[Rfam]
RNA sequence: UGCCCUGGCUUCAGUUAUCACUGUGCUGAUGCUGUCUAUACUAAAGUACAGUACCGUGAUAACUAAGGAUGGUU
Numbered sequence: 001u002g003c004c005c006u007g008g009c010u011u012c013a014g015u016u017a018u019c020a021c022u023g024u025g026c027u028g029a030u031g032c033u034g035u036c037u038a039u040a041c042u043a044a045a046g047u048a049c050a051g052u053a054c055c056g057u058g059a060u061a062a063c064u065a066a067g068g069a070u071g072g073u074u
Stems, first nucleotide, its partner, number of pairs: 013064009023054004028049001030048004
Shown here is a 74-nucleotide sequence from Laticauda laticaudata, a member of the family "mir-101 microRNA precursor family". Taxonomically the source falls in Laticauda (Eukaryota, Episquamata, Colubroidea, Laticaudinae). A search with the family's covariance model found it, with a score of 69 bits.